[Rfam]
RNA sequence: AAGAUCGGGCAAAGCGCUGUCGUUGACAGCAACCCCAGGUAGCCAGAACCUUUAAGGCUACGCCACACCGUGGUGGUUCUCCCAAAGUGCGAUUAGCGUCCGGCGGCUCGCACGGUCACAGCGAUGUGAUGGAUGC
Numbered sequence: 001a002a003g004a005u006c007g008g009g010c011a012a013a014g015c016g017c018u019g020u021c022g023u024u025g026a027c028a029g030c031a032a033c034c035c036c037a038g039g040u041a042g043c044c045a046g047a048a049c050c051u052u053u054a055a056g057g058c059u060a061c062g063c064c065a066c067a068c069c070g071u072g073g074u075g076g077u078u079c080u081c082c083c084a085a086a087g088u089g090c091g092a093u094u095a096g097c098g099u100c101c102g103g104c105g106g107c108u109c110g111c112a113c114g115g116u117c118a119c120a121g122c123g124a125u126g127u128g129a130u131g132g133a134u135g136c
Stems, first nucleotide, its partner, number of pairs: 016030006039061006047078004062074005109135002115130006

The record is a 136-nucleotide sequence, which matches "radC RNA" in Rfam.
By type it is a cis-regulatory element.
The family's consensus secondary structure is taken from published work.